[Rfam]
RNA sequence: UUAUUUCUGGCUUUUAUCAGGGCUUGCUUUUGGGAAAUUGAUAAAAGUUAGCGAUAGAAGGACUCACUAACGUAUCGUCUCGCCGUGCUAGACACCGAGGUGAUGCGUUUUUUU
Numbered sequence: 001u002u003a004u005u006u007c008u009g010g011c012u013u014u015u016a017u018c019a020g021g022g023c024u025u026g027c028u029u030u031u032g033g034g035a036a037a038u039u040g041a042u043a044a045a046a047g048u049u050a051g052c053g054a055u056a057g058a059a060g061g062a063c064u065c066a067c068u069a070a071c072g073u074a075u076c077g078u079c080u081c082g083c084c085g086u087g088c089u090a091g092a093c094a095c096c097g098a099g100g101u102g103a104u105g106c107g108u109u110u111u112u113u114u
Stems, first nucleotide, its partner, number of pairs: 002056004007051013069109014085095003
This 114-nucleotide RNA from Lacticaseibacillus nasuensis belongs to the Rfam family "23S methyl RNA motif". A reference for the family is Weinberg et al. (2007), "Identification of 22 candidate structured RNAs in bacteria using the CMfinder comparative genomics pipeline", Nucleic Acids Res. By type it is a cis-regulatory element. Pairs were carried over by alignment from the consensus structure, which is taken from published work. The source organism's lineage runs through Bacteria, Bacillati, Lactobacillales, Lacticaseibacillus and Lacticaseibacillus nasuensis. Its family is annotated with regulation of gene expression in the Gene Ontology.